Record summary: Rfam assigns this 145-nucleotide RNA sequence from Sporanaerobacter sp. PP17-6a to the family "Ribosomal protein L20 leader". NCBI's taxonomy places the organism under Bacteria, Bacillati, Tissierellia, Sporanaerobacteraceae, Sporanaerobacter. Rfam links the family to the GO term regulation of gene expression. This family is a putative r-protein leader autoregulatory structure found in B. subtilis and other low-GC Gram-positive bacteria. It is located in the 5' untranslated regions of mRNAs encoding initiation factor 3 followed by ribosomal proteins L35 and L20 (infC-rpmI-rplT). A Rho-independent transcription terminator structure that is probably involved in regulation is included at the 3' end.
[Rfam]
RNA sequence: AAAAUUAAGCAGAAGUAUCCGCUUCUCACCUUAUAGCUGGGGCUCAUAAGGUUAAAUAUUUUAGAUAGUUAUUGGUUUGACAAAUUAUUUUUGUCUGAUUGUUGGAAAAAGAAGCGGGUAUUUUUGCCCGCUUUUUAUUUUUUAU
Numbered sequence: 001a002a003a004a005u006u007a008a009g010c011a012g013a014a015g016u017a018u019c020c021g022c023u024u025c026u027c028a029c030c031u032u033a034u035a036g037c038u039g040g041g042g043c044u045c046a047u048a049a050g051g052u053u054a055a056a057u058a059u060u061u062u063a064g065a066u067a068g069u070u071a072u073u074g075g076u077u078u079g080a081c082a083a084a085u086u087a088u089u090u091u092u093g094u095c096u097g098a099u100u101g102u103u104g105g106a107a108a109a110a111g112a113a114g115c116g117g118g119u120a121u122u123u124u125u126g127c128c129c130g131c132u133u134u135u136u137a138u139u140u141u142u143u144a145u
Base pairs, nucleotide, nucleotide: 011026012025013024014023015022016021028076029075030074034071035070036069037068038067039066113132114131115130116129117128118127119126120125